The record is a 175-nucleotide RNA from Rhodoferax sediminis, which matches "Group II catalytic intron D1-D4-3" in Rfam. The family has 406 seed sequences and 4,274 matches in Rfam 15.1. The pairing is the family consensus, mapped onto this sequence. Lineage of the source: Bacteria > Pseudomonadati > Pseudomonadota > Comamonadaceae > Rhodoferax.
[Rfam]
RNA sequence: UCGCGGGCGACUGCGAAUCUGAAGGAAGCUGUAGGGCAAAGCGCUGGCCUGACUCCAGGCGAGCGGAUAUGAGGCGUCGUAGCGGGGGUGAGGUGGCCCAAUUCACUAAAGCCCGAAACUUGCACGGAAGCGGUGCGGCGUAGAUCCGACAAGCAUAAGCGUGAAAGUGGGUGGC
Numbered sequence: 001u002c003g004c005g006g007g008c009g010a011c012u013g014c015g016a017a018u019c020u021g022a023a024g025g026a027a028g029c030u031g032u033a034g035g036g037c038a039a040a041g042c043g044c045u046g047g048c049c050u051g052a053c054u055c056c057a058g059g060c061g062a063g064c065g066g067a068u069a070u071g072a073g074g075c076g077u078c079g080u081a082g083c084g085g086g087g088g089u090g091a092g093g094u095g096g097c098c099c100a101a102u103u104c105a106c107u108a109a110a111g112c113c114c115g116a117a118a119c120u121u122g123c124a125c126g127g128a129a130g131c132g133g134u135g136c137g138g139c140g141u142a143g144a145u146c147c148g149a150c151a152a153g154c155a156u157a158a159g160c161g162u163g164a165a166a167g168u169g170g171g172u173g174g175c
Stems, first nucleotide, its partner, number of pairs: 001016006028175005036168002041162005047154002050151002064148005074141003078137004083132002086114004092107004